[Rfam]
RNA sequence: GAGACACCCUUAUGGGGCAAGAUUUGCUUCAGUGGGGCUUUGGCGAUCACUGAGUCUGCCAUGAUUGUGUCUCU
Numbered sequence: 001g002a003g004a005c006a007c008c009c010u011u012a013u014g015g016g017g018c019a020a021g022a023u024u025u026g027c028u029u030c031a032g033u034g035g036g037g038c039u040u041u042g043g044c045g046a047u048c049a050c051u052g053a054g055u056c057u058g059c060c061a062u063g064a065u066u067g068u069g070u071c072u073c074u
Stems, first nucleotide, its partner, number of pairs: 001073007010064003016060004021056003029053007037044002